[Rfam]
RNA sequence: UCGCACAUCUUGUUGUUUGGUUGUUGUUUUUUGGCGAAAUCAUUUGAUCACAUGACAAGAUGUGCAUCUA
Numbered sequence: 001u002c003g004c005a006c007a008u009c010u011u012g013u014u015g016u017u018u019g020g021u022u023g024u025u026g027u028u029u030u031u032u033g034g035c036g037a038a039a040u041c042a043u044u045u046g047a048u049c050a051c052a053u054g055a056c057a058a059g060a061u062g063u064g065c066a067u068c069u070a
Base pairs, nucleotide, nucleotide: 003065004064005063006062007061008060009059010058011057012056013055014054015053016052018050019049035046036045037044038043